[Rfam]
RNA sequence: AAUUUAUAGAGAAGAGGCGAGAGAAUAGGCUCCCUGACCCUCUGGCAACCUGUUGAAGAGCAAGGUGCCACAUCCUAUCCCGGCUGGACCGGGGCAUAUAAAUA
Numbered sequence: 001a002a003u004u005u006a007u008a009g010a011g012a013a014g015a016g017g018c019g020a021g022a023g024a025a026u027a028g029g030c031u032c033c034c035u036g037a038c039c040c041u042c043u044g045g046c047a048a049c050c051u052g053u054u055g056a057a058g059a060g061c062a063a064g065g066u067g068c069c070a071c072a073u074c075c076u077a078u079c080c081c082g083g084c085u086g087g088a089c090c091g092g093g094g095c096a097u098a099u100a101a102a103u104a
Stems, first nucleotide, its partner, number of pairs: 002103007013043005021032003026077004044069004049065002051062004073096001078094006
Shown here is a 104-nucleotide RNA sequence from Pontibacter flavimaris, a member of the family "SAM riboswitch aptamer (S box leader)".
Rfam's curators write: The SAM riboswitch is found upstream of a number of genes which code for proteins involved in methionine or cysteine biosynthesis in Gram-positive bacteria. The SAM riboswitch acts at the level of transcription termination control. The predicted structure consists of a complex stem-loop region followed by a single stem loop terminator region. An alternative and mutually exclusive form involves bases in the 3' segment of helix 1 with those in the 5' region of helix 5 to form a structure termed the anti-terminator form.